RNA sequence: CGUUGAGGACGACCUCAGCCAUUGCUGGCCCACUUAUCUUGCCCGGGACGACCCGG
Number, nucleotide and partner (000 for none) at each position: 001c000002g019003u018004u017005g016006a015007g014008g013009a000010c000011g000012a000013c008014c007015u006016c005017a004018g003019c002020c000021a000022u000023u000024g000025c000026u000027g000028g000029c000030c000031c000032a000033c000034u000035u000036a000037u000038c000039u000040u000041g000042c000043c056044c055045g054046g053047g052048a000049c000050g000051a000052c047053c046054c045055g044056g043

The family of this 56-nucleotide RNA sequence from Comamonas antarctica is "Guanidine-II riboswitch aptamer (mini-ykkC)".
The family's consensus secondary structure is taken from published work.
Simpler in structure and has fewer highly conserved nucleotide positions than the ykkC-yxkD leader. Despite this each of its two stem-loop structures directly bind free guanidine. Therefore, mini-ykkC RNA motif represents a distinct class of guanidine-sensing RNAs. Its crystal structure was also determined.
The source organism's lineage runs through Bacteria, Pseudomonadati, Betaproteobacteria, Comamonadaceae and Comamonas.
A reference for the family is Sherlock et al. (2017), "Biochemical Validation of a Second Guanidine Riboswitch Class in Bacteria", Biochemistry.